[Rfam]
RNA sequence: UUUGGGAAGUGAUGAUAAGAUAUCGAUUAUGUCAUAGGCACAUGCAAUGCUGAACAACAUAUUUGCACGUCAGUCUGAUCCCGUU
Dot-bracket structure: ..(((((.......................................................................)))))..